[Rfam]
RNA sequence: CUCUCAUCGAGAGGGACUGAGGGAACGGCCCGUUGAAGUCCCGGCAACCGCCGCGAACCUCCGCCUCCUGGCACGCCAGUCAGGAACGGAUCGCGGAAAAGGUGCUAAUUCCGGCCCGGCACGAGAGACGUGCUCGGGGAAGAUGAGGA
Numbered sequence: 001c002u003c004u005c006a007u008c009g010a011g012a013g014g015g016a017c018u019g020a021g022g023g024a025a026c027g028g029c030c031c032g033u034u035g036a037a038g039u040c041c042c043g044g045c046a047a048c049c050g051c052c053g054c055g056a057a058c059c060u061c062c063g064c065c066u067c068c069u070g071g072c073a074c075g076c077c078a079g080u081c082a083g084g085a086a087c088g089g090a091u092c093g094c095g096g097a098a099a100a101g102g103u104g105c106u107a108a109u110u111c112c113g114g115c116c117c118g119g120c121a122c123g124a125g126a127g128a129c130g131u132g133c134u135c136g137g138g139g140a141a142g143a144u145g146a147g148g149a
Stems, first nucleotide, its partner, number of pairs: 002148007013042005021031003026113003043106004048102002052096001110141001115138005
The record is a 149-nucleotide sequence from Nocardioides bruguierae, which matches "SAM riboswitch aptamer (S box leader)" in Rfam. The base pairs follow the family's consensus structure, which is taken from published work. It scores 70 bits against the family's covariance model. Lineage of the source: Bacteria > Bacillati > Actinomycetes > Propionibacteriales > Nocardioides. The SAM riboswitch is found upstream of a number of genes which code for proteins involved in methionine or cysteine biosynthesis in Gram-positive bacteria.